[Rfam]
About this RNA
This 387-nucleotide RNA from Oceanobacillus bengalensis belongs to the Rfam family "Bacterial RNase P class B". The source organism's lineage runs through Bacteria, Bacillota, Bacilli, Caryophanales and Oceanobacillus. It scores 321 bits against the family's covariance model.
RNA sequence: AUACUCAUGUAAUCGCUGCAUGAUUUUAUUAUGCAGAGGAAAGUCCAUGCUCACACAAACUGCGAUGUUUGUAGUGUUCGUGCUUGAUGAAACCAUAAGUCAAGGUAGCUUUUAGGAGCUAACGGCAGGAUGUAUUCCUAAGUCAAUCUAGAUAUGGAAUCAGAUCCUUGAAAGUGCCACAGUGACGUAGCUAGCGUGGAAACAUGUUAGGUGGAACGAGGUAAACCCCGCGAGUGAGCAACCCAAAUAAUGGUAGGGGCAUCCUUUAGUAGGGAAAUGAACCGAAUAAGGGACAGGUCAUAUGACCUUGUAGAUAGAUGAUUACAGCCGGCGUACGAGGACCGACCACCGCUUGUAGUACAAUGGCACAGAACAUGGCUUAUCGAG
Numbered sequence: 001a002u003a004c005u006c007a008u009g010u011a012a013u014c015g016c017u018g019c020a021u022g023a024u025u026u027u028a029u030u031a032u033g034c035a036g037a038g039g040a041a042a043g044u045c046c047a048u049g050c051u052c053a054c055a056c057a058a059a060c061u062g063c064g065a066u067g068u069u070u071g072u073a074g075u076g077u078u079c080g081u082g083c084u085u086g087a088u089g090a091a092a093c094c095a096u097a098a099g100u101c102a103a104g105g106u107a108g109c110u111u112u113u114a115g116g117a118g119c120u121a122a123c124g125g126c127a128g129g130a131u132g133u134a135u136u137c138c139u140a141a142g143u144c145a146a147u148c149u150a151g152a153u154a155u156g157g158a159a160u161c162a163g164a165u166c167c168u169u170g171a172a173a174g175u176g177c178c179a180c181a182g183u184g185a186c187g188u189a190g191c192u193a194g195c196g197u198g199g200a201a202a203c204a205u206g207u208u209a210g211g212u213g214g215a216a217c218g219a220g221g222u223a224a225a226c227c228c229c230g231c232g233a234g235u236g237a238g239c240a241a242c243c244c245a246a247a248u249a250a251u252g253g254u255a256g257g258g259g260c261a262u263c264c265u266u267u268a269g270u271a272g273g274g275a276a277a278u279g280a281a282c283c284g285a286a287u288a289a290g291g292g293a294c295a296g297g298u299c300a301u302a303u304g305a306c307c308u309u310g311u312a313g314a315u316a317g318a319u320g321a322u323u324a325c326a327g328c329c330g331g332c333g334u335a336c337g338a339g340g341a342c343c344g345a346c347c348a349c350c351g352c353u354u355g356u357a358g359u360a361c362a363a364u365g366g367c368a369c370a371g372a373a374c375a376u377g378g379c380u381u382a383u384c385g386a387g
Base pairs, nucleotide, nucleotide: 004387005386006385007383008326009325010324011323012322013321014320016036017035018034019033020032021031041381042380043379045378046377047376048375049374050238051237052236053235054234055072056071057070058069059068060067078233079232080231081230082229083104084103085102086101087100088099105123106121107120108119109118110117111116124228125227127168128167129166130165135159136158137157138156142153143152144151174226175225176222177221178220191210192209193208194207195206196205197204198203242258243257244256262293263292264291265290266289267288268287295308296307297306298305299304328366329365330364333361334360335359336358